A member of the RNA family "Small nucleolar RNA R44/J54/Z268 family" from Carex littledalei, 104 nucleotides long. It scores 61 bits against the family's covariance model. Rfam links the family to the GO terms RNA processing and nucleolus. The family's RNA type in Rfam is C/D-box small nucleolar RNA.
RNA sequence: UAUGCAAGUGAUGACGAGGAUGUAGACAGAGAAAUCUGUAUUCCGUUUUGAAUUUCCAAAAAGGGAUGAAGACUUGGUAUAAUUGGGAAUCUCUCUGAUGCUUU
Number, nucleotide and partner (000 for none) at each position: 001u000002a103003u000004g101005c100006a099007a000008g000009u000010g000011a000012u000013g000014a000015c000016g000017a000018g000019g000020a000021u000022g000023u000024a000025g000026a000027c000028a000029g000030a000031g000032a000033a000034a000035u000036c000037u000038g000039u000040a000041u000042u000043c000044c000045g000046u000047u000048u000049u000050g000051a000052a000053u000054u000055u000056c000057c000058a000059a000060a000061a000062a000063g000064g000065g000066a000067u000068g000069a000070a000071g000072a000073c000074u000075u000076g000077g000078u000079a000080u000081a000082a000083u000084u000085g000086g000087g000088a000089a000090u000091c000092u000093c000094u000095c000096u000097g000098a000099u006100g005101c004102u000103u002104u000